[Rfam]
RNA: mir-95 microRNA precursor family
Organism: Sus scrofa
RNA sequence: AACACAGUGGGCGCUCAAUAAAUGUUUGUUGAAUUGAGAUGCGUUAAAUUCAACGGGUAUUUAUUGAGCACCCACUCUGUG
Numbered sequence: 001a002a003c004a005c006a007g008u009g010g011g012c013g014c015u016c017a018a019u020a021a022a023u024g025u026u027u028g029u030u031g032a033a034u035u036g037a038g039a040u041g042c043g044u045u046a047a048a049u050u051c052a053a054c055g056g057g058u059a060u061u062u063a064u065u066g067a068g069c070a071c072c073c074a075c076u077c078u079g080u081g
Stems, first nucleotide, its partner, number of pairs: 002080003007075005014068006021061012034047003